[Rfam]
RNA: Small nucleolar RNA SNORD116
Organism: Muntiacus reevesi
RNA sequence: GGAUCGAUGACGACACCCUCUCAUGCACUCCUUCAAAAUCUGAACAACAUGAGUGAGAACUCACUACCGUCUCCUCAUCGAAACUGAGGUCC
Numbered sequence: 001g002g003a004u005c006g007a008u009g010a011c012g013a014c015a016c017c018c019u020c021u022c023a024u025g026c027a028c029u030c031c032u033u034c035a036a037a038a039u040c041u042g043a044a045c046a047a048c049a050u051g052a053g054u055g056a057g058a059a060c061u062c063a064c065u066a067c068c069g070u071c072u073c074c075u076c077a078u079c080g081a082a083a084c085u086g087a088g089g090u091c092c
Base pairs, nucleotide, nucleotide: 001092002091003090004089005088026055027054028053029052030051032047033046